A member of the RNA family "mir-57 microRNA precursor family" from Thelazia callipaeda, 82 nucleotides long.
The literature on the family includes a 2019 paper in Nucleic Acids Res by Kozomara et al., "miRBase: from microRNA sequences to function".
The source organism's lineage runs through Eukaryota, Metazoa, Eumetazoa, Ecdysozoa and Thelazia.
Pairs were carried over by alignment from the consensus structure, which was predicted with RNAalifold.
RNA sequence: GCUUGCUCGUCUACCCUGUGGUACCGAGCUGUGUCUGAGUAAUAAGCAAACACAAUCGAUCACUGGGUGAAUGAUCUUGCUU
Numbered sequence: 001g002c003u004u005g006c007u008c009g010u011c012u013a014c015c016c017u018g019u020g021g022u023a024c025c026g027a028g029c030u031g032u033g034u035c036u037g038a039g040u041a042a043u044a045a046g047c048a049a050a051c052a053c054a055a056u057c058g059a060u061c062a063c064u065g066g067g068u069g070a071a072u073g074a075u076c077u078u079g080c081u082u
Stems, first nucleotide, its partner, number of pairs: 012069004018063004025058001028057001030055001032054003036050001039047002